Shown here is a 130-nucleotide sequence from Virgibacillus indicus, a member of the family "Ribosomal protein L20 leader". Rfam links the family to the GO term regulation of gene expression. The family's RNA type in Rfam is cis-regulatory leader. The match comes from Rfam's covariance-model search (82 bits). NCBI's taxonomy places the organism under Bacteria, Bacillati, Bacillota, Caryophanales, Virgibacillus. About the family: This family is a putative r-protein leader autoregulatory structure found in B. subtilis and other low-GC Gram-positive bacteria. The base pairs follow the family's consensus structure, which was predicted with CMfinder.
RNA sequence: UGAGACAAGUAGAAGCACCCGCUUCUCACCUGAUCGACGCAAAAUGCAGUUGACUGGUUCCGAACUCUUUUGAUAGAUAGACUAUUGGAGACGUGUGGGUGCAUAAUUGUACCGACACUUUUUUAAUGAA
Numbered sequence: 001u002g003a004g005a006c007a008a009g010u011a012g013a014a015g016c017a018c019c020c021g022c023u024u025c026u027c028a029c030c031u032g033a034u035c036g037a038c039g040c041a042a043a044a045u046g047c048a049g050u051u052g053a054c055u056g057g058u059u060c061c062g063a064a065c066u067c068u069u070u071u072g073a074u075a076g077a078u079a080g081a082c083u084a085u086u087g088g089a090g091a092c093g094u095g096u097g098g099g100u101g102c103a104u105a106a107u108u109g110u111a112c113c114g115a116c117a118c119u120u121u122u123u124u125a126a127u128g129a130a
Base pairs, nucleotide, nucleotide: 011026012025013024014023015022016021028058029057030056036051037050038049039047040046094117095116096115098113099112100111101110102109103108